[Rfam]
RNA: Makes More Granules Regulator RNA (mmgR)
Organism: Poindextera montana
RNA sequence: CGUUCCUGCCCAUUCCUGGGCGUUUCCUCCCUAUGAACUGGCCGCGCUUUCGGGCGCGGCUUUUUUUUCGCCCCCA
Numbered sequence: 001c002g003u004u005c006c007u008g009c010c011c012a013u014u015c016c017u018g019g020g021c022g023u024u025u026c027c028u029c030c031c032u033a034u035g036a037a038c039u040g041g042c043c044g045c046g047c048u049u050u051c052g053g054g055c056g057c058g059g060c061u062u063u064u065u066u067u068u069c070g071c072c073c074c075c076a
Stems, first nucleotide, its partner, number of pairs: 008021004040061009